[Rfam]
RNA sequence: UCCCCGGACUCUGGAGAGCAGGCGGAUAUUCCGCCCACCGAAGGGGCUAGCGGCACGAGGCAGGGUUCCUCGCGCCGUAAUCUCUCAGGUAUCAAGGACAGAGGGGUCAGG
Numbered sequence: 001u002c003c004c005c006g007g008a009c010u011c012u013g014g015a016g017a018g019c020a021g022g023c024g025g026a027u028a029u030u031c032c033g034c035c036c037a038c039c040g041a042a043g044g045g046g047c048u049a050g051c052g053g054c055a056c057g058a059g060g061c062a063g064g065g066u067u068c069c070u071c072g073c074g075c076c077g078u079a080a081u082c083u084c085u086c087a088g089g090u091a092u093c094a095a096g097g098a099c100a101g102a103g104g105g106g107u108c109a110g111g
Stems, first nucleotide, its partner, number of pairs: 009103005021035004037090003040086002044084003050078005

A member of the RNA family "Glycine riboswitch aptamer" from Usitatibacter rugosus, 111 nucleotides long.
Taxonomically the source falls in Usitatibacter (Bacteria, Pseudomonadati, Pseudomonadota, Nitrosomonadales).